Overview: This 133-nucleotide RNA from Zizania palustris belongs to the Rfam family "Small nucleolar RNA snoR138".
[Rfam]
RNA sequence: UGUGCCUCAUGAAUAACCAGAUGCUGUUUUAUUAUAUUUGCUUUUGGUUCAGACUGGGGCACAUAGCAAACAUAGUCUUUUUUAGGGAAUGGACCUGAUUUUCUGUUCAUCCCUUAGAUAGAUUCUGAUAUGU
Numbered sequence: 001u002g003u004g005c006c007u008c009a010u011g012a013a014u015a016a017c018c019a020g021a022u023g024c025u026g027u028u029u030u031a032u033u034a035u036a037u038u039u040g041c042u043u044u045u046g047g048u049u050c051a052g053a054c055u056g057g058g059g060c061a062c063a064u065a066g067c068a069a070a071c072a073u074a075g076u077c078u079u080u081u082u083u084a085g086g087g088a089a090u091g092g093a094c095c096u097g098a099u100u101u102u103c104u105g106u107u108c109a110u111c112c113c114u115u116a117g118a119u120a121g122a123u124u125c126u127g128a129u130a131u132g133u
Stems, first nucleotide, its partner, number of pairs: 003061006015049007024040001026038001072126001074124004080118003085113003089110001092107003097103001
Record summary: For this family Rfam cites "Mining small RNA sequencing data: a new approach to identify small nucleolar RNAs in Arabidopsis" (Chen and Wu, Nucleic Acids Res, 2009). The family's consensus secondary structure was predicted with mfold.